[Rfam]
RNA sequence: CGUCCUGGAGAGUCCGGCAGGGGCCGGCGCCGACGGGGUAACACUCUCAGGUUCCGGGACAGGACG
Numbered sequence: 001c002g003u004c005c006u007g008g009a010g011a012g013u014c015c016g017g018c019a020g021g022g023g024c025c026g027g028c029g030c031c032g033a034c035g036g037g038g039u040a041a042c043a044c045u046c047u048c049a050g051g052u053u054c055c056g057g058g059a060c061a062g063g064a065c066g
Base pairs, nucleotide, nucleotide: 001066002065003064004063005062006061007060014027015026016025017024029052030051031050032048033047036046037045038044
A member of the RNA family "Glycine riboswitch aptamer" from Rubrobacter xylanophilus, 66 nucleotides long.
NCBI's taxonomy places the organism under Bacteria, Rubrobacterales, Rubrobacteraceae, Rubrobacter, Rubrobacter xylanophilus.